[Rfam]
RNA sequence: AGGCAUUCCGCCACAAGCUAUGCAAUUAAAGCUAAAAGAUUACUUUAUUAAACAGAUACGUGCUUAUAUGGACGGCAAGGUACCAGUAGCCACUGUAUCAAACAAAACCAGUGCUAGCAGUAACACUGUUAAACCAAUUGCAGGUGCAUGGCAAGUUAACAGUUAUGGCACUUAUUACAUGAAAGAAAGUGCAACGUUUGUUUGUGGUAAUAAGCCUAUUACAACUAGAACGGUUGGCCCAUUCACGACUUGUCC
Numbered sequence: 001a002g003g004c005a006u007u008c009c010g011c012c013a014c015a016a017g018c019u020a021u022g023c024a025a026u027u028a029a030a031g032c033u034a035a036a037a038g039a040u041u042a043c044u045u046u047a048u049u050a051a052a053c054a055g056a057u058a059c060g061u062g063c064u065u066a067u068a069u070g071g072a073c074g075g076c077a078a079g080g081u082a083c084c085a086g087u088a089g090c091c092a093c094u095g096u097a098u099c100a101a102a103c104a105a106a107a108c109c110a111g112u113g114c115u116a117g118c119a120g121u122a123a124c125a126c127u128g129u130u131a132a133a134c135c136a137a138u139u140g141c142a143g144g145u146g147c148a149u150g151g152c153a154a155g156u157u158a159a160c161a162g163u164u165a166u167g168g169c170a171c172u173u174a175u176u177a178c179a180u181g182a183a184a185g186a187a188a189g190u191g192c193a194a195c196g197u198u199u200g201u202u203u204g205u206g207g208u209a210a211u212a213a214g215c216c217u218a219u220u221a222c223a224a225c226u227a228g229a230a231c232g233g234u235u236g237g238c239c240c241a242u243u244c245a246c247g248a249c250u251u252g253u254c255c
Stems, first nucleotide, its partner, number of pairs: 002216003010208003019150002022147003026143002030139002033136001038130003045123004051115001053113001062090003066087002069085003072081002095108001098105001166194001168192006175185002221253003225247001228244003233239001

A member of the RNA family "Staphylococcus sRNA 808" from Staphylococcus phage phiSP38-1, 255 nucleotides long.
The match comes from Rfam's covariance-model search (148 bits).
By type it is a small RNA.